[Rfam]
RNA sequence: CAUCGAGUAUCGGUGGUGAUCUGGUAAGUGUUUCGCUUAUGAGAUCACGCCUAUAUUCGCUUUC
Numbered sequence: 001c002a003u004c005g006a007g008u009a010u011c012g013g014u015g016g017u018g019a020u021c022u023g024g025u026a027a028g029u030g031u032u033u034c035g036c037u038u039a040u041g042a043g044a045u046c047a048c049g050c051c052u053a054u055a056u057u058c059g060c061u062u063u064c
Stems, first nucleotide, its partner, number of pairs: 005058006012051004017047006024040006
Notes
The family of this 64-nucleotide RNA sequence from Ancylostoma caninum is "mir-5885 microRNA precursor family". The family has 3 seed sequences and 36 matches in Rfam 15.1. A search with the family's covariance model found it, with a score of 68 bits. Its family is annotated with miRNA-mediated post-transcriptional gene silencing and RISC complex in the Gene Ontology.